[Rfam]
Annotation:
tRNA: an 80-nucleotide RNA sequence from Chlamydomonas incerta. It scores 57 bits against the family's covariance model.
RNA sequence: GGCGACGUGGCCGAGUGGUCUAAGGCGCAGGAUUAAGGCUCCUGUCCGCAAGGGCGUAGGUUCAAACCCUACCGUCGUCA
Numbered sequence: 001g002g003c004g005a006c007g008u009g010g011c012c013g014a015g016u017g018g019u020c021u022a023a024g025g026c027g028c029a030g031g032a033u034u035a036a037g038g039c040u041c042c043u044g045u046c047c048g049c050a051a052g053g054g055c056g057u058a059g060g061u062u063c064a065a066a067c068c069c070u071a072c073c074g075u076c077g078u079c080a
Base pairs, nucleotide, nucleotide: 001079002078003077004076005075006074007073010026011025012024028044029043030042031041032040056072057071058070059069060068